[Rfam]
RNA sequence: UGGCGUCCAGUGUGGAUCAAAAACAGGGGAUUUCAUGAGGGACGCCGUUCGAGGAGCCGGCAUCAAAGUUAAAAUAGAGGAUUGGUCAACGAGGGAACCUACUGUGUUUUCCAGGCCUCGGUGAGUGAAUGGCGAUUAUGGGUCAGGAAACAAGCCAGCAUGAAAUGUUUGUUGAAAGUUUAAGUAAGACAUUAAAGGCAUGGGGGGUAAAGGUUAAAAUUAAGGAUUUAUGUCAAUAUUUUGAAUAUAUUAAACAAGUUGGCCCAUGGUU
Number, nucleotide and partner (000 for none) at each position: 001u000002g000003g000004c000005g000006u029007c028008c027009a000010g000011u000012g024013u023014g000015g000016a000017u000018c000019a000020a000021a000022a000023a013024c012025a000026g000027g008028g007029g006030a000031u000032u000033u000034c044035a000036u042037g000038a000039g000040g000041g000042a036043c000044g034045c000046c000047g000048u000049u000050c000051g000052a000053g000054g000055a000056g000057c000058c000059g000060g000061c000062a000063u000064c000065a000066a000067a000068g000069u000070u000071a000072a000073a000074a000075u000076a000077g000078a000079g000080g119081a118082u000083u000084g000085g112086u000087c000088a000089a000090c106091g105092a000093g103094g102095g000096a000097a000098c000099c000100u000101a000102c094103u093104g000105u091106g090107u000108u000109u000110u000111c000112c085113a000114g000115g000116c000117c000118u081119c080120g000121g000122u000123g000124a000125g000126u145127g144128a143129a000130u142131g000132g000133c140134g139135a000136u000137u000138a000139u134140g133141g000142g130143u128144c127145a126146g000147g000148a000149a000150a000151c000152a193153a192154g190155c000156c188157a000158g000159c000160a000161u000162g000163a000164a000165a000166u000167g000168u000169u000170u000171g000172u000173u000174g000175a000176a000177a000178g000179u000180u000181u000182a000183a000184g000185u000186a000187a000188g156189a000190c154191a000192u153193u152194a000195a000196a000197g000198g000199c000200a000201u243202g242203g241204g240205g239206g000207g237208u236209a000210a000211a229212g228213g227214u226215u225216a000217a000218a000219a000220u000221u000222a000223a000224g000225g215226a214227u213228u212229u211230a000231u000232g000233u000234c000235a000236a208237u207238a000239u205240u204241u203242u202243g201244a000245a000246u000247a000248u000249a000250u000251u000252a271253a270254a000255c268256a267257a000258g000259u000260u000261g000262g000263c000264c000265c000266a000267u256268g255269g000270u253271u252
RNA: Mason-Pfizer monkey virus packaging signal